The record is a 144-nucleotide RNA sequence from Ornithorhynchus anatinus, which matches "mir-130 microRNA precursor family" in Rfam. Its family is annotated with miRNA-mediated post-transcriptional gene silencing and RISC complex in the Gene Ontology. The source organism's lineage runs through Eukaryota, Gnathostomata, Sarcopterygii, Tetrapoda and Ornithorhynchus. The match comes from Rfam's covariance-model search (41 bits).
RNA sequence: UGCAGGCCCGAGCUCUUUUCACUAGGCCACACUGCUUCUGCCAAGCGCAUGAAGAGACCACUUGAGCUAGAUAUGAUUCUGAACGGCUAUUAUAAAACCAUAUGAGAAGCAGCGUGGCUCAGUGGAAAGAGCACGGGCUUUGGA
Numbered sequence: 001u002g003c004a005g006g007c008c009c010g011a012g013c014u015c016u017u018u019u020c021a022c023u024a025g026g027c028c029a030c031a032c033u034g035c036u037u038c039u040g041c042c043a044a045g046c047g048c049a050u051g052a053a054g055a056g057a058c059c060a061c062u063u064g065a066g067c068u069a070g071a072u073a074u075g076a077u078u079c080u081g082a083a084c085g086g087c088u089a090u091u092a093u094a095a096a097a098c099c100a101u102a103u104g105a106g107a108a109g110c111a112g113c114g115u116g117g118c119u120c121a122g123u124g125g126a127a128a129g130a131g132c133a134c135g136g137g138c139u140u141u142g143g144a
Base pairs, nucleotide, nucleotide: 001144003142005139006138007137008136009135010134012132013131014130015129016128017127018126019125022122023121025119026118027117028116029115030114
The literature on the family includes a 2002 paper in Curr Biol by Lagos-Quintana et al., "Identification of tissue-specific microRNAs from mouse".